[Rfam]
RNA sequence: AAUAAUAUUCGGUAGGUGAGGCUACCUCAGGGAUAUGGGUUGCUGCCGGUUAAAGGUGGAGACACUCUUAAUCUGGUCAACAGUCUGCGUCGUUUCAAGGCGCCGAAUAACGCAACUGCACGCCCUGGGAAGCUAAAGCUUGAACGAUAUGAUACGUAC
Numbered sequence: 001a002a003u004a005a006u007a008u009u010c011g012g013u014a015g016g017u018g019a020g021g022c023u024a025c026c027u028c029a030g031g032g033a034u035a036u037g038g039g040u041u042g043c044u045g046c047c048g049g050u051u052a053a054a055g056g057u058g059g060a061g062a063c064a065c066u067c068u069u070a071a072u073c074u075g076g077u078c079a080a081c082a083g084u085c086u087g088c089g090u091c092g093u094u095u096c097a098a099g100g101c102g103c104c105g106a107a108u109a110a111c112g113c114a115a116c117u118g119c120a121c122g123c124c125c126u127g128g129g130a131a132g133c134u135a136a137a138g139c140u141u142g143a144a145c146g147a148u149a150u151g152a153u154a155c156g157u158a159c
Stems, first nucleotide, its partner, number of pairs: 006154004011145001013098001015140003020134003026129007039116005045077005055066004084106002089101003
Background:
This 159-nucleotide RNA sequence from Lachnoclostridium sp. An14 belongs to the Rfam family "M-box riboswitch aptamer (ykoK leader)". Rfam links the family to the GO terms response to magnesium ion and regulation of gene expression. For this family Rfam cites "New RNA motifs suggest an expanded scope for riboswitches in bacterial genetic control" (Barrick et al., Proc Natl Acad Sci U S A, 2004). Rfam's curators write: M-box riboswitch, also know as ykoK leader is described as a metaloregulatory RNA that sense divalent metals and function as a genetic control element of genes related to divalent metal transport in bacteria. It was first reported upstream of the B.subtilis ykoK gene and genes with related functions in other bacteria.